[Rfam]
RNA sequence: UGGGCAGUAUCAUAAUGAACUGCACCUUUCUAUCUUUUUAUAUUGAAUAGUUUCUGCCUAGAUCCAGCAUAUGGACCGGGACAGAGGG
Numbered sequence: 001u002g003g004g005c006a007g008u009a010u011c012a013u014a015a016u017g018a019a020c021u022g023c024a025c026c027u028u029u030c031u032a033u034c035u036u037u038u039u040a041u042a043u044u045g046a047a048u049a050g051u052u053u054c055u056g057c058c059u060a061g062a063u064c065c066a067g068c069a070u071a072u073g074g075a076c077c078g079g080g081a082c083a084g085a086g087g088g
Base pairs, nucleotide, nucleotide: 002026003025004023005022006021007020008019010018011017054084055083056082057080058079059078061076063075064074065073
RNA: pan motif
Organism: Bacillus sp. NRRL B-14911